[Rfam]
RNA sequence: CCCCUUGCGUGCCGCAUCAUCCUUGCCUAUUUAAGGGAUGUCCUUCGGGACUAUGGACAUAAACGCGCUCGUAAUAAGCGGAUCGGACCCGGGGGCGGUACCCGGCGUCUCCACCAAACACCCUUCAUUUGGGGGCUAUGGGGACGAAAUAGGAUCGACGAACGUCUAAAGGGGUAAGCUUUGUCUCGGUGAGUUACCACCGUUAUCGGUACAAAUUGUAUAGUUGCAAAUGACAACAAUGCACCGAUGGCAGUCGCAGCGUAAGCUGUGCCUAAUAUCGAACCUUAACUCCUUAGGUUUUGCGACCUAGGGCGGGGUUCGCAGGUACCUGGCAACAGAAACCUGCACU
Numbered sequence: 001c002c003c004c005u006u007g008c009g010u011g012c013c014g015c016a017u018c019a020u021c022c023u024u025g026c027c028u029a030u031u032u033a034a035g036g037g038a039u040g041u042c043c044u045u046c047g048g049g050a051c052u053a054u055g056g057a058c059a060u061a062a063a064c065g066c067g068c069u070c071g072u073a074a075u076a077a078g079c080g081g082a083u084c085g086g087a088c089c090c091g092g093g094g095g096c097g098g099u100a101c102c103c104g105g106c107g108u109c110u111c112c113a114c115c116a117a118a119c120a121c122c123c124u125u126c127a128u129u130u131g132g133g134g135g136c137u138a139u140g141g142g143g144a145c146g147a148a149a150u151a152g153g154a155u156c157g158a159c160g161a162a163c164g165u166c167u168a169a170a171g172g173g174g175u176a177a178g179c180u181u182u183g184u185c186u187c188g189g190u191g192a193g194u195u196a197c198c199a200c201c202g203u204u205a206u207c208g209g210u211a212c213a214a215a216u217u218g219u220a221u222a223g224u225u226g227c228a229a230a231u232g233a234c235a236a237c238a239a240u241g242c243a244c245c246g247a248u249g250g251c252a253g254u255c256g257c258a259g260c261g262u263a264a265g266c267u268g269u270g271c272c273u274a275a276u277a278u279c280g281a282a283c284c285u286u287a288a289c290u291c292c293u294u295a296g297g298u299u300u301u302g303c304g305a306c307c308u309a310g311g312g313c314g315g316g317g318u319u320c321g322c323a324g325g326u327a328c329c330u331g332g333c334a335a336c337a338g339a340a341a342c343c344u345g346c347a348c349u
Stems, first nucleotide, its partner, number of pairs: 040051004055186005065179002067175004079164002083161003089105005106146007187202004193212002196210003315330004321346006
Alphaproteobacteria transfer-messenger RNA: a 349-nucleotide RNA from Roseobacter sp. CCS2. The source organism's lineage runs through Bacteria, Pseudomonadota, Alphaproteobacteria, Rhodobacterales and Roseobacter. It is annotated as a non-coding RNA gene.